[Rfam]
RNA sequence: CCGGGGAGCCGGGCAGCCGCGUCAUCUCACCUGAGGUGCCGAGGAAAGUCCGGGCUCCACGAAACAAGGGUGGCGGGUAACGCCCGCCGGGCGAAGGGUUUCGGCCCGAAGCUUAGGGAAAGUGCCACAGAGAGCAGACCGCCGAGUCUCUUCGGAGCCAAGGUAAGGGUGAAAGGGUGCGGCAAGAGCGCACCGCGCUUCCGGUAACGGCAAGCGGCAUGGCAAACCCCACCCGGAGCAAGACCGAAUAGGGGCUGCGCGCCAAGGCCUUAGGGCCGAGGCGGGUCUGUUUCGGACCCGACAGCCCGGGUUGGUCGCUGGAGCGGUGCAGCAAUGCACCGCGUAAGAGGAAUGGCUGCCCUCGGCGAUACGGUCCUGCAAGCAGGAUACCGUCGACGAGACAGAACCCGGCUUACAGGCUCCCCGGCGUU
Numbered sequence: 001c002c003g004g005g006g007a008g009c010c011g012g013g014c015a016g017c018c019g020c021g022u023c024a025u026c027u028c029a030c031c032u033g034a035g036g037u038g039c040c041g042a043g044g045a046a047a048g049u050c051c052g053g054g055c056u057c058c059a060c061g062a063a064a065c066a067a068g069g070g071u072g073g074c075g076g077g078u079a080a081c082g083c084c085c086g087c088c089g090g091g092c093g094a095a096g097g098g099u100u101u102c103g104g105c106c107c108g109a110a111g112c113u114u115a116g117g118g119a120a121a122g123u124g125c126c127a128c129a130g131a132g133a134g135c136a137g138a139c140c141g142c143c144g145a146g147u148c149u150c151u152u153c154g155g156a157g158c159c160a161a162g163g164u165a166a167g168g169g170u171g172a173a174a175g176g177g178u179g180c181g182g183c184a185a186g187a188g189c190g191c192a193c194c195g196c197g198c199u200u201c202c203g204g205u206a207a208c209g210g211c212a213a214g215c216g217g218c219a220u221g222g223c224a225a226a227c228c229c230c231a232c233c234c235g236g237a238g239c240a241a242g243a244c245c246g247a248a249u250a251g252g253g254g255c256u257g258c259g260c261g262c263c264a265a266g267g268c269c270u271u272a273g274g275g276c277c278g279a280g281g282c283g284g285g286u287c288u289g290u291u292u293c294g295g296a297c298c299c300g301a302c303a304g305c306c307c308g309g310g311u312u313g314g315u316c317g318c319u320g321g322a323g324c325g326g327u328g329c330a331g332c333a334a335u336g337c338a339c340c341g342c343g344u345a346a347g348a349g350g351a352a353u354g355g356c357u358g359c360c361c362u363c364g365g366c367g368a369u370a371c372g373g374u375c376c377u378g379c380a381a382g383c384a385g386g387a388u389a390c391c392g393u394c395g396a397c398g399a400g401a402c403a404g405a406a407c408c409c410g411g412c413u414u415a416c417a418g419g420c421u422c423c424c425c426g427g428c429g430u431u
Stems, first nucleotide, its partner, number of pairs: 001427010011416001012360007020041002023038006046414003050411005055238004064292001066290001068234005073087005088116001089114004117229002122227002124223003139168002141164003146159001148157003176194006195218001196216005201210003242316004252307006284298005323342008
Shown here is a 431-nucleotide sequence from Novosphingobium sp. 9U, a member of the family "Bacterial RNase P class A". It is annotated as a ribozyme. The match comes from Rfam's covariance-model search (278 bits). Its family is annotated with dimeric ribonuclease P complex, tRNA processing and ribonuclease P activity in the Gene Ontology.